Shown here is a 167-nucleotide RNA from Nostoc sp. PCC 7120 = FACHB-418, a member of the family "Ribosomal protein L10 leader". It is annotated as a cis-regulatory leader. Pairs were carried over by alignment from the consensus structure, which was predicted with CMfinder. Rfam describes the family as follows. This family is a putative r-protein leader autoregulatory structure found in B. subtilis and other low-GC Gram-positive bacteria. It is located in the 5' untranslated regions of mRNAs encoding ribosomal proteins L10 and L12 (rplJ-rplL). A Rho-independent transcription terminator structure that is probably involved in regulation is included at the 3' end. Rfam's curators put it in the seed alignment.

[Rfam]
RNA sequence: AAAACUAAAUAUGCAAAGCCGGAGACAGCAGGUGCUAACAGCUUAAACACCCUGCCGAGGUAAAAGCUCUCUUACUCAAUGUGACGUGAAAAAUAAUGCGUCGCUUUAGUAAUCAGAGUCUUGAGACUAAACCCCGGCUGAGAUAGUCGGGGUUUAUUGUUGUACCC
Numbered sequence: 001a002a003a004a005c006u007a008a009a010u011a012u013g014c015a016a017a018g019c020c021g022g023a024g025a026c027a028g029c030a031g032g033u034g035c036u037a038a039c040a041g042c043u044u045a046a047a048c049a050c051c052c053u054g055c056c057g058a059g060g061u062a063a064a065a066g067c068u069c070u071c072u073u074a075c076u077c078a079a080u081g082u083g084a085c086g087u088g089a090a091a092a093a094u095a096a097u098g099c100g101u102c103g104c105u106u107u108a109g110u111a112a113u114c115a116g117a118g119u120c121u122u123g124a125g126a127c128u129a130a131a132c133c134c135c136g137g138c139u140g141a142g143a144u145a146g147u148c149g150g151g152g153u154u155u156a157u158u159g160u161u162g163u164a165c166c167c
Stems, first nucleotide, its partner, number of pairs: 028055005034042003132152009